[Rfam]
The family of this 87-nucleotide RNA sequence from Vitis rotundifolia is "Small nucleolar RNA R16". By type it is a C/D-box small nucleolar RNA. Pairs were carried over by alignment from the consensus structure, which was predicted with PFOLD.
RNA sequence: AAUGGCAAAUGAUGAGUAUGAAAUCUUAUCCUACACACUGAUCUUGAACUGUGUUGACUACUACUCCGCUUAUUAUCUGAUGCCUUG
Numbered sequence: 001a002a003u004g005g006c007a008a009a010u011g012a013u014g015a016g017u018a019u020g021a022a023a024u025c026u027u028a029u030c031c032u033a034c035a036c037a038c039u040g041a042u043c044u045u046g047a048a049c050u051g052u053g054u055u056g057a058c059u060a061c062u063a064c065u066c067c068g069c070u071u072a073u074u075a076u077c078u079g080a081u082g083c084c085u086u087g
Base pairs, nucleotide, nucleotide: 004084005083006082007081

About this RNA: Rfam 15.1 lists 884 matches to the family in 222 species. A reference for the family is Galardi et al. (2002), "Purified box C/D snoRNPs are able to reproduce site-specific 2'-O-methylation of target RNA in vitro", Mol Cell Biol.